[Rfam]
RNA: Iron response element II
Organism: Malus baccata
RNA sequence: CAGCUUUGGGGGGCAGUGUCUCCCAAAGUUG
Numbered sequence: 001c002a003g004c005u006u007u008g009g010g011g012g013g014c015a016g017u018g019u020c021u022c023c024c025a026a027a028g029u030u031g
Stems, first nucleotide, its partner, number of pairs: 001031007009024005014018001